[Rfam]
Nucleotides: 185
Stems, first nucleotide, its partner, number of pairs: 001185006035097007
Number, partner (000 for none) and nucleotide at each position: 001185a002184u003183g004182c005181c006180c007000a008000g009000u010000g011000a012000u013000u014000a015000u016000a017000a018000a019000g020000a021000g022000a023000c024000g025000c026000g027000u028000u029000a030000u031000u032000c033000u034000g035097a036096g037095g038094g039093a040092g041091a042000a043000c044000u045000g046000g047000u048000a049000c050000c051000a052000g053000g054000u055000u056000u057000u058000c059000u060000u061000u062000c063000u064000c065000u066000u067000g068000u069000a070000u071000c072000u073000u074000c075000u076000u077000u078000u079000u080000u081000u082000u083000c084000a085000c086000u087000c088000c089000u090000u091041u092040c093039u094038c095037u096036u097035u098000g099000u100000u101000c102000c103000c104000u105000u106000u107000c108000u109000c110000c111000u112000c113000c114000u115000c116000c117000c118000c119000c120000u121000c122000c123000a124000u125000c126000u127000u128000u129000u130000c131000a132000c133000c134000a135000c136000u137000u138000a139000a140000c141000u142000g143000g144000u145000a146000a147000c148000u149000a150000g151000u152000g153000u154000c155000c156000g157000c158000u159000g160000a161000a162000c163000g164000u165000g166000a167000u168000u169000a170000u171000g172000a173000g174000a175000u176000a177000u178000g179000a180006g181005g182004g183003c184002a185001u
Rfam assigns this 185-nucleotide RNA sequence from Atractosteus spatula to the family "Small nucleolar RNA SNORD97".
The base pairs follow the family's consensus structure, which was predicted with WAR.
Rfam links the family to the GO terms RNA processing and nucleolus.